[Rfam]
RNA sequence: AGCUUUGCGCAGUGGCAUUAUCAUUGACAAUGAGGUUCAACCGAGUCGUGAUUAUUGCUAAUUGAAAACUUUUCCCAAUAUCCCGCUAGACGUCAUGAAACACUGACGGCUAUGCAAUAUUUGGAGGUCUCUUCGGAGA
Numbered sequence: 001a002g003c004u005u006u007g008c009g010c011a012g013u014g015g016c017a018u019u020a021u022c023a024u025u026g027a028c029a030a031u032g033a034g035g036u037u038c039a040a041c042c043g044a045g046u047c048g049u050g051a052u053u054a055u056u057g058c059u060a061a062u063u064g065a066a067a068a069c070u071u072u073u074c075c076c077a078a079u080a081u082c083c084c085g086c087u088a089g090a091c092g093u094c095a096u097g098a099a100a101c102a103c104u105g106a107c108g109g110c111u112a113u114g115c116a117a118u119a120u121u122u123g124g125a126g127g128u129c130u131c132u133u134c135g136g137a138g139a
Stems, first nucleotide, its partner, number of pairs: 020052005026047003034042003085115002088111002091108005096102002128139004
A member of the RNA family "U4 spliceosomal RNA" from Clytia hemisphaerica, 139 nucleotides long.
The organism belongs to Clytia, within Eukaryota.
Clan: U4 clan.
The family's consensus secondary structure is taken from published work.
On this family, see Zwieb, Nucleic Acids Res 1997: "The uRNA database".
By type it is a spliceosomal small nuclear RNA.